[Rfam]
The record is a 171-nucleotide part of an RNA from Plasmodiophora brassicae, which matches "Eukaryotic large subunit ribosomal RNA" in Rfam. The match comes from Rfam's covariance-model search (2826 bits).

RNA sequence: GCGUUGGUUCGUCGUGACAGUAAUUCAACUCAGUACGAGAGGAACCGUUGAUUCGCAUGACUGGUAAAUUCGGUUGCUCGACAGGGCAUUGCUGAGAAGCUGUCAUGCGUGGGAUAACGGCUGAACGCCUCUAAGCCGGAAGCCUGGCUGGAAAUCGACGAAAUGUUUAGU
Numbered sequence: 001g002c003g004u005u006g007g008u009u010c011g012u013c014g015u016g017a018c019a020g021u022a023a024u025u026c027a028a029c030u031c032a033g034u035a036c037g038a039g040a041g042g043a044a045c046c047g048u049u050g051a052u053u054c055g056c057a058u059g060a061c062u063g064g065u066a067a068a069u070u071c072g073g074u075u076g077c078u079c080g081a082c083a084g085g086g087c088a089u090u091g092c093u094g095a096g097a098a099g100c101u102g103u104c105a106u107g108c109g110u111g112g113g114a115u116a117a118c119g120g121c122u123g124a125a126c127g128c129c130u131c132u133a134a135g136c137c138g139g140a141a142g143c144c145u146g147g148c149u150g151g152a153a154a155u156c157g158a159c160g161a162a163a164u165g166u167u168u169a170g171u
Stems, first nucleotide, its partner, number of pairs: 008162007018150004023053001025051005054109005062102003069096005075088005111145003118138005

Rfam 15.1 lists 107,465 matches to the family in 2,616 species. NCBI's taxonomy places the organism under Eukaryota, Sar, Rhizaria, Phytomyxea, Plasmodiophora.